[Rfam]
RNA sequence: UGUGUCUUUAAAAUUGGUCCCGUGAGGCCAAAAAGACAUGAUGAAACGUAUAUAUAUAACGCUCGCUUUAUGUGCGAGUUUACUGACGCGUAUACUCAUGUCUUUGGCAUGAGUAUUUUUUUAU
Numbered sequence: 001u002g003u004g005u006c007u008u009u010a011a012a013a014u015u016g017g018u019c020c021c022g023u024g025a026g027g028c029c030a031a032a033a034a035g036a037c038a039u040g041a042u043g044a045a046a047c048g049u050a051u052a053u054a055u056a057u058a059a060c061g062c063u064c065g066c067u068u069u070a071u072g073u074g075c076g077a078g079u080u081u082a083c084u085g086a087c088g089c090g091u092a093u094a095c096u097c098a099u100g101u102c103u104u105u106g107g108c109a110u111g112a113g114u115a116u117u118u119u120u121u122u123a124u
Stems, first nucleotide, its partner, number of pairs: 003038007014031006058080003062076001064074003088120001090118001092116010

A member of the RNA family "PyrR binding site" from Nosocomiicoccus massiliensis, 124 nucleotides long. It scores 58 bits against the family's covariance model. Lineage of the source: Bacteria > Bacillota > Caryophanales > Staphylococcaceae > Nosocomiicoccus. The family has 41 seed sequences and 1,498 matches in Rfam 15.1. The base pairs follow the family's consensus structure, which is taken from published work.